[Rfam]
RNA: MIR4371 microRNA precursor family
Organism: Cajanus cajan
RNA sequence: CUGUCAAGUGAUGAUGUGACAGACGGACUGCCACAUCAUCACCCAACAGUGUUUGCCAUGUCAUCACCAUGUCCACGUGGAAGACCCUUGGAUGACGUGGCAGACACUGUUGGGUGAUGACAUGACAGUCCGUUUGUCACGUCAUCAUUUAACAGAA
Numbered sequence: 001c002u003g004u005c006a007a008g009u010g011a012u013g014a015u016g017u018g019a020c021a022g023a024c025g026g027a028c029u030g031c032c033a034c035a036u037c038a039u040c041a042c043c044c045a046a047c048a049g050u051g052u053u054u055g056c057c058a059u060g061u062c063a064u065c066a067c068c069a070u071g072u073c074c075a076c077g078u079g080g081a082a083g084a085c086c087c088u089u090g091g092a093u094g095a096c097g098u099g100g101c102a103g104a105c106a107c108u109g110u111u112g113g114g115u116g117a118u119g120a121c122a123u124g125a126c127a128g129u130c131c132g133u134u135u136g137u138c139a140c141g142u143c144a145u146c147a148u149u150u151a152a153c154a155g156a157a
Stems, first nucleotide, its partner, number of pairs: 001155004006150025032124002036120011049107005055101005071093005